[Rfam]
RNA: mir-393 microRNA precursor family
Organism: Trifolium pratense
RNA sequence: AAAGGAUGAAUCCAAAGGGAUAGCAUGAUCCUGAGAAAUUAAUUAAGGACAUAAUUAGAUUCGGGAUCAAUGCGAUCCCUUUGGAUGCCUCCUC
Numbered sequence: 001a002a003a004g005g006a007u008g009a010a011u012c013c014a015a016a017g018g019g020a021u022a023g024c025a026u027g028a029u030c031c032u033g034a035g036a037a038a039u040u041a042a043u044u045a046a047g048g049a050c051a052u053a054a055u056u057a058g059a060u061u062c063g064g065g066a067u068c069a070a071u072g073c074g075a076u077c078c079c080u081u082u083g084g085a086u087g088c089c090u091c092c093u094c
Stems, first nucleotide, its partner, number of pairs: 003093004008088001010086012023073003026069006035061001